[Rfam]
RNA sequence: GGUCGUGUAGCUCAGUCGGUAGAGCAGCAGACUGAAGCUCUGCGUGUCGGCGGUUCAAUUCCGUCCACGACCA
Numbered sequence: 001g002g003u004c005g006u007g008u009a010g011c012u013c014a015g016u017c018g019g020u021a022g023a024g025c026a027g028c029a030g031a032c033u034g035a036a037g038c039u040c041u042g043c044g045u046g047u048c049g050g051c052g053g054u055u056c057a058a059u060u061c062c063g064u065c066c067a068c069g070a071c072c073a
Stems, first nucleotide, its partner, number of pairs: 001072007010025004027043005049065005
This 73-nucleotide RNA from Mycoplasma capricolum belongs to the Rfam family "tRNA". The base pairs follow the family's consensus structure, which is taken from published work. A reference for the family is Hou (1993), "The tertiary structure of tRNA and the development of the genetic code", Trends Biochem Sci. Taxonomically the source falls in Mycoplasma (Bacteria, Bacillati, Mycoplasmatales, Mycoplasmataceae).